[Rfam]
RNA sequence: UUACCUCUUGGAGCUCUGACUGUGACUUGUGUUUAAUUUAUUGACUUCACAUCACAGGCAGAGUUCUAGUUAGGUGG
Dot-bracket structure: ...(((.(((((((((...((((((...(((................))).))))))...)))))))))..)))...
Numbered sequence: 001u002u003a004c005c006u007c008u009u010g011g012a013g014c015u016c017u018g019a020c021u022g023u024g025a026c027u028u029g030u031g032u033u034u035a036a037u038u039u040a041u042u043g044a045c046u047u048c049a050c051a052u053c054a055c056a057g058g059c060a061g062a063g064u065u066c067u068a069g070u071u072a073g074g075u076g077g
Stems, first nucleotide, its partner, number of pairs: 004074003008069009020057006029050003